[Rfam]
RNA sequence: GAGCCUCUGCAGUGUUCGUGAUGCGUCGGAAAUUGUUGGGGACCCUACAAGAACCUGCUACGGGAGCCUUUUUAAAAUACACUCGUGGCUCGCAAGCCCAUCCUUCCGCUUCGUGCGGAAGACUGUAGUGGGAUCCGAAAGACGGGUGUGAGGCUCCCACGAUUUUCUUUAGCGGGUUCCUCAAACACGACUCACACGGCACAGGUGGAGGUUUU
Numbered sequence: 001g002a003g004c005c006u007c008u009g010c011a012g013u014g015u016u017c018g019u020g021a022u023g024c025g026u027c028g029g030a031a032a033u034u035g036u037u038g039g040g041g042a043c044c045c046u047a048c049a050a051g052a053a054c055c056u057g058c059u060a061c062g063g064g065a066g067c068c069u070u071u072u073u074a075a076a077a078u079a080c081a082c083u084c085g086u087g088g089c090u091c092g093c094a095a096g097c098c099c100a101u102c103c104u105u106c107c108g109c110u111u112c113g114u115g116c117g118g119a120a121g122a123c124u125g126u127a128g129u130g131g132g133a134u135c136c137g138a139a140a141g142a143c144g145g146g147u148g149u150g151a152g153g154c155u156c157c158c159a160c161g162a163u164u165u166u167c168u169u170u171a172g173c174g175g176g177u178u179c180c181u182c183a184a185a186c187a188c189g190a191c192u193c194a195c196a197c198g199g200c201a202c203a204g205g206u207g208g209a210g211g212u213u214u215u
Base pairs, nucleotide, nucleotide: 002213003212004211005210006209007208008207009206010205012202013201014200015199017198018197019196036185037184039182040180041179042178044176045175062158063157064156066154067153068152069151070150080148081147082146083145084144085143086142092136097132098131099130100129101128
Shown here is a 215-nucleotide sequence from Limnoglobus roseus, a member of the family "6S / SsrS RNA". The family has 150 seed sequences and 5,006 matches in Rfam 15.1. Rfam describes the family as follows. E. coli 6S RNA was the first non coding RNA to be sequenced, but its function was unknown until recently. It consists of 184 nucleotides that fold into an extended hairpin structure with a large single-stranded internal bulge. The 6S RNA specifically associates with RNA polymerase holoenzyme containing the sigma70 specificity factor.